[Rfam]
RNA: RtT RNA
Organism: Erwinia sp. OLSSP12
RNA sequence: CGGUAUCCAGCGUGGAGAAGGACGAGAACCUUCGACAAGGUUCGAGCCGAGCGUAGCGAGACAACGUUGCCUUACAGGCAACGGCCCGAAGGGUGAGGCGCCCUGGGCGCCGAAUCAUCCUUCUCCCACCACCA
Numbered sequence: 001c002g003g004u005a006u007c008c009a010g011c012g013u014g015g016a017g018a019a020g021g022a023c024g025a026g027a028a029c030c031u032u033c034g035a036c037a038a039g040g041u042u043c044g045a046g047c048c049g050a051g052c053g054u055a056g057c058g059a060g061a062c063a064a065c066g067u068u069g070c071c072u073u074a075c076a077g078g079c080a081a082c083g084g085c086c087c088g089a090a091g092g093g094u095g096a097g098g099c100g101c102c103c104u105g106g107g108c109g110c111c112g113a114a115u116c117a118u119c120c121u122u123c124u125c126c127c128a129c130c131a132c133c134a
Base pairs, nucleotide, nucleotide: 015125016124017123018122019121020120021119033095034094036092041090042089043088044087048058049057065083066082067081068080069079070078